[Rfam]
The record is a 76-nucleotide sequence from Propithecus coquereli, which matches "mir-320 microRNA precursor family" in Rfam.
It scores 79 bits against the family's covariance model.
Pairs were carried over by alignment from the consensus structure, which was predicted with RNAalifold.

RNA sequence: AGUGUUCAUGGCCUUCUCUUCCUGGUUCUUCCUGGAGUCUGGAAAAGCUGGGUUGAGAGGUGGAAAAAAAAAGGAA
Numbered sequence: 001a002g003u004g005u006u007c008a009u010g011g012c013c014u015u016c017u018c019u020u021c022c023u024g025g026u027u028c029u030u031c032c033u034g035g036a037g038u039c040u041g042g043a044a045a046a047g048c049u050g051g052g053u054u055g056a057g058a059g060g061u062g063g064a065a066a067a068a069a070a071a072a073g074g075a076a
Base pairs, nucleotide, nucleotide: 014059015058016057017056018055021052022051023050024049025048029044030043031042032041034039